Source information
The family of this 75-nucleotide sequence from Panicum hallii is "Small nucleolar RNA R66". Gene Ontology terms of the family: RNA processing and nucleolus. Rfam's curators write: snoR66 is a C/D box small nucleolar RNA, which acts as a methylation guide for 18S ribosomal RNA in plants. snoR66 has been alternatively named snoZ269 in rice. It is annotated as a C/D-box small nucleolar RNA. For this family Rfam cites "The high diversity of snoRNAs in plants: identification and comparative study of 120 snoRNA genes from Oryza sativa" (Chen et al., Nucleic Acids Res, 2003).
[Rfam]
RNA sequence: UCCCGUGAUGGCGUAAUCUUUGAGACCUGAGUUCUUUCUUCCUUGAUGAAAAUCACAAGCAUGAUCGCUGAGGAC
Numbered sequence: 001u002c003c004c005g006u007g008a009u010g011g012c013g014u015a016a017u018c019u020u021u022g023a024g025a026c027c028u029g030a031g032u033u034c035u036u037u038c039u040u041c042c043u044u045g046a047u048g049a050a051a052a053u054c055a056c057a058a059g060c061a062u063g064a065u066c067g068c069u070g071a072g073g074a075c
Stems, first nucleotide, its partner, number of pairs: 001074003030044001031041001